[Rfam]
RNA: mir-26 microRNA precursor family
Organism: Ornithorhynchus anatinus
RNA sequence: CUGCGACCUGGUUCAAGUAAUCCAGGAUAGGCUGUGUGCGCUCAGAUUGGCCUGUUCUCGGUUACUUGCCCCAGGGGGCGG
Number, nucleotide and partner (000 for none) at each position: 001c000002u080003g079004c078005g000006a000007c075008c074009u073010g072011g071012u000013u000014c068015a067016a066017g065018u064019a063020a062021u061022c060023c000024a058025g057026g056027a055028u054029a053030g052031g051032c050033u049034g000035u000036g000037u000038g000039c000040g000041c000042u000043c000044a000045g000046a000047u000048u000049g033050g032051c031052c030053u029054g028055u027056u026057c025058u024059c000060g022061g021062u020063u019064a018065c017066u016067u015068g014069c000070c000071c011072c010073a009074g008075g007076g000077g000078g004079c003080g002081g000